[Rfam]
RNA sequence: UCAAUCCUUCAGGGCAGGGUGAAAUUCCCUACCGGCGGUGAUGUUGCUGCAAGUUAGUCUUGCAGUGCUUAGUCCGCUACCCGGACCGCGCAACAACGCGGACGGUGGACCCGGUGCAAUUCCGGGACCGACAGUAUAGUCUGGAUGGAAGAAGGAGAGA
Numbered sequence: 001u002c003a004a005u006c007c008u009u010c011a012g013g014g015c016a017g018g019g020u021g022a023a024a025u026u027c028c029c030u031a032c033c034g035g036c037g038g039u040g041a042u043g044u045u046g047c048u049g050c051a052a053g054u055u056a057g058u059c060u061u062g063c064a065g066u067g068c069u070u071a072g073u074c075c076g077c078u079a080c081c082c083g084g085a086c087c088g089c090g091c092a093a094c095a096a097c098g099c100g101g102a103c104g105g106u107g108g109a110c111c112c113g114g115u116g117c118a119a120u121u122c123c124g125g126g127a128c129c130g131a132c133a134g135u136a137u138a139g140u141c142u143g144g145a146u147g148g149a150a151g152a153a154g155g156a157g158a159g160a
Base pairs, nucleotide, nucleotide: 005156006155007154008153009152010151017029018028019027031140032139033130034129035077036076037075038074072128073127081105082104110126111125112124113123114122132143133142134141
Dot-bracket structure: ....((((((......(((.......))).[[((((((.................................[[))))...((.....................))....(((((.......)))))]])).(((....]]))).......))))))....
A member of the RNA family "FMN riboswitch aptamer (RFN element)" from Paenibacillus agri, 160 nucleotides long. For this family Rfam cites "Regulation of riboflavin biosynthesis and transport genes in bacteria by transcriptional and translational attenuation" (Vitreschak et al., Nucleic Acids Res, 2002). The match comes from Rfam's covariance-model search (107 bits). The source organism's lineage runs through Bacteria, Bacillati, Bacilli, Caryophanales and Paenibacillus. The family's consensus secondary structure is taken from published work.